[Rfam]
RNA sequence: AAAGCAGGCUGCAAUUGCAGUGCUUCAUCCUAUGGGAGCCCUGCCAUGUCCCUGCUAAGAGUAACUCUGUUCAUGCUGGCUUUGGUUUCACCUACGCGGUGGUGAAACCGUUUGUUCUUAACGUGUACAGGU
Numbered sequence: 001a002a003a004g005c006a007g008g009c010u011g012c013a014a015u016u017g018c019a020g021u022g023c024u025u026c027a028u029c030c031u032a033u034g035g036g037a038g039c040c041c042u043g044c045c046a047u048g049u050c051c052c053u054g055c056u057a058a059g060a061g062u063a064a065c066u067c068u069g070u071u072c073a074u075g076c077u078g079g080c081u082u083u084g085g086u087u088u089c090a091c092c093u094a095c096g097c098g099g100u101g102g103u104g105a106a107a108c109c110g111u112u113u114g115u116u117c118u119u120a121a122c123g124u125g126u127a128c129a130g131g132u
Stems, first nucleotide, its partner, number of pairs: 003056006018043003022039005068125003075118001083110010
RNA: Small nucleolar RNA SNORA69
Organism: Centropus unirufus